[Rfam]
RNA sequence: CUUUUACACGAGCCGAAACUUAAUGUACGGGGGAACUUCGGGAACUAUCGCUGGCCGAUAUUUUCCGCCGUGUUCGCAUGGCGACAUGGAUUCUGCGAUUCAUCCACGGAUGUCCGGAAGACCGCGAACGGUCGACUGAACGACCCGAUGGAUGCAAAAGCUUGGGGUGAAUCGCGAGCGGCGAAAGCCGGGUGCGCGCGAAGGGUCGAACUCCUCGAUCCGAAUCCGACAACUAACCUCGUAGGCCACAUGCUGGAGCGGAU
Numbered sequence: 001c002u003u004u005u006a007c008a009c010g011a012g013c014c015g016a017a018a019c020u021u022a023a024u025g026u027a028c029g030g031g032g033g034a035a036c037u038u039c040g041g042g043a044a045c046u047a048u049c050g051c052u053g054g055c056c057g058a059u060a061u062u063u064u065c066c067g068c069c070g071u072g073u074u075c076g077c078a079u080g081g082c083g084a085c086a087u088g089g090a091u092u093c094u095g096c097g098a099u100u101c102a103u104c105c106a107c108g109g110a111u112g113u114c115c116g117g118a119a120g121a122c123c124g125c126g127a128a129c130g131g132u133c134g135a136c137u138g139a140a141c142g143a144c145c146c147g148a149u150g151g152a153u154g155c156a157a158a159a160g161c162u163u164g165g166g167g168u169g170a171a172u173c174g175c176g177a178g179c180g181g182c183g184a185a186a187g188c189c190g191g192g193u194g195c196g197c198g199c200g201a202a203g204g205g206u207c208g209a210a211c212u213c214c215u216c217g218a219u220c221c222g223a224a225u226c227c228g229a230c231a232a233c234u235a236a237c238c239u240c241g242u243a244g245g246c247c248a249c250a251u252g253c254u255g256g257a258g259c260g261g262a263u
Stems, first nucleotide, its partner, number of pairs: 012246003018026002027242006037164001165227003173200004203221004
Dot-bracket structure: ...........(((...((.....))((((((....(..............................................................................................................................)(((.....((((....................))))..((((...........))))...))).........)))))).))).................
The family of this 263-nucleotide RNA sequence from Paenibacillus methanolicus is "c-di-AMP riboswitch aptamer (ydaO/yuaA leader)". A search with the family's covariance model found it, with a score of 57 bits. The base pairs follow the family's consensus structure. Rfam links the family to the GO terms cyclic-di-AMP binding and regulation of gene expression.